[Rfam]
RNA sequence: GGACUGCGAUGAUGCAAGAGGUUGCCGGUUACCGGGUUAAUUCUUGCUGAGAAUGUCCUGAUCUAGAAUCGGGCGACGG
Numbered sequence: 001g002g003a004c005u006g007c008g009a010u011g012a013u014g015c016a017a018g019a020g021g022u023u024g025c026c027g028g029u030u031a032c033c034g035g036g037u038u039a040a041u042u043c044u045u046g047c048u049g050a051g052a053a054u055g056u057c058c059u060g061a062u063c064u065a066g067a068a069u070c071g072g073g074c075g076a077c078g079g
Stems, first nucleotide, its partner, number of pairs: 014047003018043003021038001025035004054078004060074001062072002
The record is a 79-nucleotide sequence from Fonticella tunisiensis, which matches "S10-Clostridia ribosomal protein leader" in Rfam.
The family's consensus secondary structure is taken from published work.
It scores 42 bits against the family's covariance model.